A member of the RNA family "mir-399 microRNA precursor family" from Oryza meridionalis, 99 nucleotides long. Rfam describes the family as follows. mir-399 was identified in both Arabidopsis thaliana and Oryza sativa computationally and was later experimentally verified. mir-399 is thought to target mRNAs coding for a phosphatase transporter. The mature sequence is excised from the 3' arm of the hairpin. On this family, see Jones-Rhoades and Bartel, Mol Cell 2004: "Computational Identification of Plant MicroRNAs and Their Targets, Including a Stress-Induced miRNA".
[Rfam]
RNA sequence: CCAUGCAUUACUGGGCAGGUCUCCCUUGGCAGUGGCCGAUCGAGCUGAUCAAACCAUGCAAAAGCCACUGCCAAAGGAGACUUGCCCAGCAAUGCAGAU
Numbered sequence: 001c002c003a004u005g006c007a008u009u010a011c012u013g014g015g016c017a018g019g020u021c022u023c024c025c026u027u028g029g030c031a032g033u034g035g036c037c038g039a040u041c042g043a044g045c046u047g048a049u050c051a052a053a054c055c056a057u058g059c060a061a062a063a064g065c066c067a068c069u070g071c072c073a074a075a076g077g078a079g080a081c082u083u084g085c086c087c088a089g090c091a092a093u094g095c096a097g098a099u
Stems, first nucleotide, its partner, number of pairs: 005095005011089009021079004027073009
Dot-bracket structure: ....(((((.(((((((((.((((..(((((((((.............................)))))))))..)))).))))))))).)))))....